[Rfam]
RNA sequence: GAAGGAAGGUCCUUCGACAGGAAUUGAACAGGCAAGCCUGUCAAAUCACUCUAAUGCUGCUGUGAUUAAGGUCAUGGUAGUGAGCGAUUAGAGAAAAGGUUAUUUUAGUAACCAGA
Numbered sequence: 001g002a003a004g005g006a007a008g009g010u011c012c013u014u015c016g017a018c019a020g021g022a023a024u025u026g027a028a029c030a031g032g033c034a035a036g037c038c039u040g041u042c043a044a045a046u047c048a049c050u051c052u053a054a055u056g057c058u059g060c061u062g063u064g065a066u067u068a069a070g071g072u073c074a075u076g077g078u079a080g081u082g083a084g085c086g087a088u089u090a091g092a093g094a095a096a097a098g099g100u101u102a103u104u105u106u107a108g109u110a111a112c113c114a115g116a
Stems, first nucleotide, its partner, number of pairs: 001015005016042006024035003046116002049093002052090004056081002059078003063074004098113006

The family of this 116-nucleotide sequence from bacterium 1XD42-8 is "Group II catalytic intron D1-D4-2". The pairing is the family consensus, mapped onto this sequence. A search with the family's covariance model found it, with a score of 78 bits.